Annotation:
The record is a 335-nucleotide sequence from Acerihabitans arboris, which matches "RNase E 5' UTR element" in Rfam. Rfam links the family to the GO term regulation of gene expression. It is annotated as a cis-regulatory element. This family represents a conserved element found in the 5' UTR of RNase E mRNA. RNase E is a key regulatory enzyme in the pathway of mRNA degradation in E. coli that is able to auto-regulate the degradation of its own mRNA in response to changes in RNase E activity. This rne 5' UTR element acts as a sensor of cellular RNase E concentration enabling tight regulation of RNase E concentration and synthesis. The family's consensus secondary structure is taken from published work.
[Rfam]
RNA sequence: CUUUCCGCUCUGCUCGCGUUAAAGGCGAGAAAUCGUGGAAUUUUCAAAUUUGCCGGAUUAAACAUACACGCAGCAAUGGCGUAAGACGUAUUGAUUAAUCAGGCAGUUAGCGGGCUGCGGAUUGCAGCUUGGCCGGCAAAAGGAAUUCGUUCUGGCGACAGUUAUCAGACGUGAUUCCCGCUGUAAAUGCGCUGUCUUUCUCUCUGAAAACAGGCUACCGAAAUAAUGCGCCCCUCUGCGAGCGACAACCGUGAGGUUGACGGUUUUGCGACAAGUCACGGGGCCGUCGGUUAUCACCCGGUCAUGCGUUUUUUUGCCCGCAGCUCUGAUGCCAA
Number, nucleotide and partner (000 for none) at each position: 001c000002u000003u040004u039005c038006c037007g036008c035009u000010c000011u000012g000013c029014u028015c027016g026017c025018g000019u000020u000021a000022a000023a000024g000025g017026c016027g015028a014029g013030a000031a000032a000033u000034c000035g008036u007037g006038g005039a004040a003041u000042u000043u000044u000045c000046a000047a000048a000049u000050u106051u105052g104053c103054c102055g000056g100057a099058u000059u000060a000061a095062a000063c093064a092065u000066a000067c000068a089069c088070g087071c000072a000073g080074c079075a000076a000077u000078g000079g074080c073081g000082u000083a000084a000085g000086a000087c070088g069089u068090a000091u000092u064093g063094a000095u061096u000097a000098a000099u057100c056101a000102g054103g053104c052105a051106g050107u000108u000109a000110g000111c000112g326113g325114g324115c323116u322117g321118c320119g319120g318121a000122u316123u000124g000125c000126a000127g000128c000129u000130u304131g303132g302133c301134c300135g299136g298137c000138a000139a000140a000141a000142g178143g177144a176145a175146u174147u000148c000149g000150u000151u169152c168153u167154g166155g000156c000157g000158a000159c000160a000161g000162u000163u000164a000165u000166c154167a153168g152169a151170c000171g000172u000173g000174a146175u145176u144177c143178c142179c000180g000181c000182u000183g000184u000185a000186a000187a000188u000189g215190c214191g000192c213193u212194g211195u210196c000197u209198u208199u207200c206201u000202c000203u000204c000205u000206g200207a199208a198209a197210a195211c194212a193213g192214g190215c189216u000217a291218c290219c289220g288221a287222a000223a000224u000225a000226a000227u000228g000229c000230g284231c283232c282233c281234c280235u000236c000237u000238g000239c000240g000241a000242g000243c262244g261245a000246c259247a258248a257249c256250c255251g000252u000253g000254a000255g250256g249257u248258u247259g246260a000261c244262g243263g000264u000265u000266u000267u000268g000269c000270g000271a000272c000273a000274a000275g000276u000277c000278a000279c000280g234281g233282g232283g231284c230285c000286g000287u221288c220289g219290g218291u217292u000293a000294u000295c000296a000297c000298c136299c135300g134301g133302u132303c131304a130305u000306g000307c000308g000309u000310u000311u000312u000313u000314u000315u000316g122317c000318c120319c119320g118321c117322a116323g115324c114325u113326c112327u000328g000329a000330u000331g000332c000333c000334a000335a000